Rfam assigns this 106-nucleotide sequence from Nosocomiicoccus massiliensis to the family "SAM riboswitch aptamer (S box leader)".
RNA sequence: UUCUUAUCCAGAGUGGUGGAGGGAAGUGCCCAAGGAAGCCACGGCAACCGUCUAAAUAGACAAGGUGCUAAUUCACUGAAUGAUCAAGAUCAUUCGAAGAUGAGAA
Numbered sequence: 001u002u003c004u005u006a007u008c009c010a011g012a013g014u015g016g017u018g019g020a021g022g023g024a025a026g027u028g029c030c031c032a033a034g035g036a037a038g039c040c041a042c043g044g045c046a047a048c049c050g051u052c053u054a055a056a057u058a059g060a061c062a063a064g065g066u067g068c069u070a071a072u073u074c075a076c077u078g079a080a081u082g083a084u085c086a087a088g089a090u091c092a093u094u095c096g097a098a099g100a101u102g103a104g105a106a
Stems, first nucleotide, its partner, number of pairs: 001106008013042005021031003025077004043069004048065002050061004073098001078095006
Dot-bracket structure: ((((((((....(((((...(((.[[[[)))......)))))((((.((((((....))))..))))))...(]]]]((((((......))))))..)))))))))